[Rfam]
RNA sequence: UGGACCAAUGAUGACCACUGGUAGCGUAUGAGUCAUGGAUGGUGAAUACUAUGUGUCAAGACCUCUGAGGUCCAU
Numbered sequence: 001u002g003g004a005c006c007a008a009u010g011a012u013g014a015c016c017a018c019u020g021g022u023a024g025c026g027u028a029u030g031a032g033u034c035a036u037g038g039a040u041g042g043u044g045a046a047u048a049c050u051a052u053g054u055g056u057c058a059a060g061a062c063c064u065c066u067g068a069g070g071u072c073c074a075u
Stems, first nucleotide, its partner, number of pairs: 002073005

The family of this 75-nucleotide sequence from Eschrichtius robustus is "Small nucleolar RNA SNORD113/SNORD114 family".
On this family, see Cavaille et al., Hum Mol Genet 2002: "Identification of tandemly-repeated C/D snoRNA genes at the imprinted human 14q32 domain reminiscent of those at the Prader-Willi/Angelman syndrome region".
Clan: SNORD74 clan.
Rfam links the family to the GO terms RNA processing and nucleolus.
The source organism's lineage runs through Eukaryota, Gnathostomata, Artiodactyla, Cetacea and Eschrichtius.
By type it is a C/D-box small nucleolar RNA.
Rfam describes the family as follows. The imprinted human domain at 14q32 contains two clusters of tandemly repeated small nucleolar RNAs named 14q(I) and 14q(II) snoRNAs.
A search with the family's covariance model found it, with a score of 84 bits.